[Rfam]
The record is a 79-nucleotide RNA sequence from Clostridium sartagoforme, which matches "Glycine riboswitch aptamer" in Rfam. Lineage of the source: Bacteria > Bacillota > Clostridia > Eubacteriales > Clostridium. On this family, see Mandal et al., Science 2004: "A glycine-dependent riboswitch that uses cooperative binding to control gene expression".

RNA sequence: UUGAAGGUAGCGGGAGAGUGAUUUUUAUUAAAUCCACCGAAGAAGUAAAUCUUUCAGGUAUUAGGACCGUUGCUGGACG
Numbered sequence: 001u002u003g004a005a006g007g008u009a010g011c012g013g014g015a016g017a018g019u020g021a022u023u024u025u026u027a028u029u030a031a032a033u034c035c036a037c038c039g040a041a042g043a044a045g046u047a048a049a050u051c052u053u054u055c056a057g058g059u060a061u062u063a064g065g066a067c068c069g070u071u072g073c074u075g076g077a078c079g
Stems, first nucleotide, its partner, number of pairs: 006074008020034004036059003039055002043053003